[Rfam]
Background: Glycine riboswitch aptamer: a 96-nucleotide RNA from Microbacterium sp. SA39. Rfam links the family to the GO term glycine biosynthetic process. Lineage of the source: Bacteria > Bacillati > Actinomycetota > Microbacteriaceae > Microbacterium.
RNA sequence: AUGACCCCCGCGGGAGAGCCCCGGCGAACGCAGCCGGGCACCGAAGGAGCAAGCCUCCCCGCCAAUCUCUCAGGUAACGCGUACCGCGCGGUUCCG
Number, nucleotide and partner (000 for none) at each position: 001a000002u000003g000004a000005c000006c091007c090008c000009c088010g087011c086012g085013g084014g000015a000016g000017a000018g000019c000020c038021c037022c036023g035024g034025c033026g000027a000028a000029c000030g000031c000032a000033g025034c024035c023036g022037g021038g020039c000040a075041c074042c073043g071044a070045a000046g000047g069048a068049g067050c000051a000052a000053g062054c061055c000056u000057c000058c000059c000060c000061g054062c053063c000064a000065a000066u000067c049068u048069c047070u044071c043072a000073g042074g041075u040076a000077a000078c000079g000080c000081g000082u000083a000084c013085c012086g011087c010088g009089c000090g007091g006092u000093u000094c000095c000096g000